[Rfam]
RNA: c-di-GMP-I-GGC riboswitch aptamer
Organism: Desulfatibacillum alkenivorans
RNA sequence: AAAGACAAAGCCAAACCUGCUGCGAGGCAGGGACGGAAAGCCACGGGUCCCAUAAACAGACAUGCGGAUAGCCGGGUUACCAUUA
Numbered sequence: 001a002a003a004g005a006c007a008a009a010g011c012c013a014a015a016c017c018u019g020c021u022g023c024g025a026g027g028c029a030g031g032g033a034c035g036g037a038a039a040g041c042c043a044c045g046g047g048u049c050c051c052a053u054a055a056a057c058a059g060a061c062a063u064g065c066g067g068a069u070a071g072c073c074g075g076g077u078u079a080c081c082a083u084u085a
Stems, first nucleotide, its partner, number of pairs: 004081001011036002016031006034071001039078004044074003047069003